The record is a 299-nucleotide sequence from Alligator mississippiensis, which matches "Metazoan signal recognition particle RNA" in Rfam. By type it is a non-coding RNA gene. The family's consensus secondary structure is taken from published work. The signal recognition particle (SRP) is a universally conserved ribonucleoprotein. It is involved in the co-translational targeting of proteins to membranes. The eukaryotic SRP consists of a 300-nucleotide 7S RNA and six proteins: SRPs 72, 68, 54, 19, 14, and 9. Archaeal SRP consists of a 7S RNA and homologues of the eukaryotic SRP19 and SRP54 proteins. Gene Ontology terms of the family: signal recognition particle, endoplasmic reticulum targeting and SRP-dependent cotranslational protein targeting to membrane, signal sequence recognition.

RNA sequence: GCUGGGCACAGUGGCUUGUGUCUGUAAUCCAAGUGUCUGGGAGGAUGAGGUUGGUGGACUGCUUAAACCUGGGAGUUCAAGGCUCUAGCAGGCCAUGUUGAGCAGGUGUCCAAACUGGGGUCGGCACCAGCAUGGGGACCCUGAGGUAGCUUGGAGUCUCCAGGUUGCUUAAGGAGGGGUGAACUGGCCCAGGCUGGGAACAGAGCAGGUCAAAGCUCCCUUGCUGACUGGUGGUGGGACAGCACCUGUGAAUGGCUCCUGUAGUCUAACCUGGGUCAGAAAGGGGGACCCUGCCUUUU
Numbered sequence: 001g002c003u004g005g006g007c008a009c010a011g012u013g014g015c016u017u018g019u020g021u022c023u024g025u026a027a028u029c030c031a032a033g034u035g036u037c038u039g040g041g042a043g044g045a046u047g048a049g050g051u052u053g054g055u056g057g058a059c060u061g062c063u064u065a066a067a068c069c070u071g072g073g074a075g076u077u078c079a080a081g082g083c084u085c086u087a088g089c090a091g092g093c094c095a096u097g098u099u100g101a102g103c104a105g106g107u108g109u110c111c112a113a114a115c116u117g118g119g120g121u122c123g124g125c126a127c128c129a130g131c132a133u134g135g136g137g138a139c140c141c142u143g144a145g146g147u148a149g150c151u152u153g154g155a156g157u158c159u160c161c162a163g164g165u166u167g168c169u170u171a172a173g174g175a176g177g178g179g180u181g182a183a184c185u186g187g188c189c190c191a192g193g194c195u196g197g198g199a200a201c202a203g204a205g206c207a208g209g210u211c212a213a214a215g216c217u218c219c220c221u222u223g224c225u226g227a228c229u230g231g232u233g234g235u236g237g238g239a240c241a242g243c244a245c246c247u248g249u250g251a252a253u254g255g256c257u258c259c260u261g262u263a264g265u266c267u268a269a270c271c272u273g274g275g276u277c278a279g280a281a282a283g284g285g286g287g288a289c290c291c292u293g294c295c296u297u298u299u
Base pairs, nucleotide, nucleotide: 002044003043004023005022006021007020008019009018010017011016028042029041030040047297048296049295050294051293053291054290059286060285062283063282064281067276068275069274070273071272072271073270080267081266082265083264084263086261087260088259090257092256093255094254095253096252098250102249103248104247105246106245107244108243109242110238111237114235115234116233117232119229120228121227122226123225124224125223126222128167129166130165131164133162134161135160136159137158138157139156141154142153143152144151145150168174169173176219177218178217179216180215185212186211187210188209189208194203195202196201